[Rfam]
RNA sequence: AAUCCCUUUUCAGUACCUUCCACUCGCAUCACAAUGAAUGGACGGCUAUGCUAAUGGGAUAGAAAAAACACUGUCAUGGUCUGAAGGUGUGGCUAGUUUACCGUGAACCCCACUCAAUAAAAUGACAGAAUAUGUCAGU
Dot-bracket structure: ...(((.........((.(......................).))..........)))..............((((..............((.(.................)))........)))).............

About this RNA
Shown here is a 139-nucleotide sequence from Etheostoma spectabile, a member of the family "Small nucleolar RNA SNORA29". The family has 26 seed sequences and 960 matches in Rfam 15.1. About the family: ACA29 is a member of the H/ACA class of snoRNA that guide the sites of modification of uridines to pseudouridines. It is annotated as an H/ACA-box small nucleolar RNA. For this family Rfam cites "RNomics: an experimental approach that identifies 201 candidates for novel, small, non-messenger RNAs in mouse" (Huttenhofer et al., EMBO J, 2001).